[Rfam]
RNA sequence: AUUUCAAAUGAUGAGAUUUGAUCUAAAAUUCUCACGACGGUCGUCUGAGACUAUGUGUCGAUUGAUGUACCGAUCGCUUUUCUCUGAUGAAU
Numbered sequence: 001a002u003u004u005c006a007a008a009u010g011a012u013g014a015g016a017u018u019u020g021a022u023c024u025a026a027a028a029u030u031c032u033c034a035c036g037a038c039g040g041u042c043g044u045c046u047g048a049g050a051c052u053a054u055g056u057g058u059c060g061a062u063u064g065a066u067g068u069a070c071c072g073a074u075c076g077c078u079u080u081u082c083u084c085u086g087a088u089g090a091a092u
Stems, first nucleotide, its partner, number of pairs: 001092004050056002

Small nucleolar RNA Z161/Z228: a 92-nucleotide RNA sequence from Brassica carinata. It is annotated as a C/D-box small nucleolar RNA. It scores 69 bits against the family's covariance model. The family's consensus secondary structure was predicted with PFOLD. Lineage of the source: Eukaryota > Streptophytina > Euphyllophyta > rosids > Brassica. For this family Rfam cites "The high diversity of snoRNAs in plants: identification and comparative study of 120 snoRNA genes from Oryza sativa" (Chen et al., Nucleic Acids Res, 2003).